[Rfam]
RNA: Bacterial RNase P class A
RNA sequence: UGAGCUGGCCGGGCGGCCGCGGGAAGGAAACUUCUCGAGGAAGGUCCGGGCUGCACAGGGCAAGGUGGUGGGUAACGCCCACCCGGGGCGACCCGCGGGACAGUGCCACAGAGAACAGACCGCCUCCUUCGGGAGGUAAGGGUGAAACGGUGGUGUAAGAGACCACCAGCGGACCGGGCGACCGGCCCGGCUAGGUAAACCCCACCUGCAGCAAGGUCAAGAAGGAUCCUUCGGGAUCCGCGCGAAUGUUCGAGGGCGGCCCGCCCGAGUUCGCGGGUAGACCGCACGAGGCGGCCGGCAACGGCCGUCCCAGAUGGAUGGUCGCCGAACGCGGUGCCGCAAGGUCCGCGGGAACAGAACCCGGCCUACAGGCCAGCUCAUCCG
Numbered sequence: 001u002g003a004g005c006u007g008g009c010c011g012g013g014c015g016g017c018c019g020c021g022g023g024a025a026g027g028a029a030a031c032u033u034c035u036c037g038a039g040g041a042a043g044g045u046c047c048g049g050g051c052u053g054c055a056c057a058g059g060g061c062a063a064g065g066u067g068g069u070g071g072g073u074a075a076c077g078c079c080c081a082c083c084c085g086g087g088g089c090g091a092c093c094c095g096c097g098g099g100a101c102a103g104u105g106c107c108a109c110a111g112a113g114a115a116c117a118g119a120c121c122g123c124c125u126c127c128u129u130c131g132g133g134a135g136g137u138a139a140g141g142g143u144g145a146a147a148c149g150g151u152g153g154u155g156u157a158a159g160a161g162a163c164c165a166c167c168a169g170c171g172g173a174c175c176g177g178g179c180g181a182c183c184g185g186c187c188c189g190g191c192u193a194g195g196u197a198a199a200c201c202c203c204a205c206c207u208g209c210a211g212c213a214a215g216g217u218c219a220a221g222a223a224g225g226a227u228c229c230u231u232c233g234g235g236a237u238c239c240g241c242g243c244g245a246a247u248g249u250u251c252g253a254g255g256g257c258g259g260c261c262c263g264c265c266c267g268a269g270u271u272c273g274c275g276g277g278u279a280g281a282c283c284g285c286a287c288g289a290g291g292c293g294g295c296c297g298g299c300a301a302c303g304g305c306c307g308u309c310c311c312a313g314a315u316g317g318a319u320g321g322u323c324g325c326c327g328a329a330c331g332c333g334g335u336g337c338c339g340c341a342a343g344g345u346c347c348g349c350g351g352g353a354a355c356a357g358a359a360c361c362c363g364g365c366c367u368a369c370a371g372g373c374c375a376g377c378u379c380a381u382c383c384g
Stems, first nucleotide, its partner, number of pairs: 001380010011369001012326007020037007042367003046364005051211004058262004063207005068082005083097001084095004098202002103200002105196003120141002122137006149167006169191001170189003174185004215283004242274006254266004290309008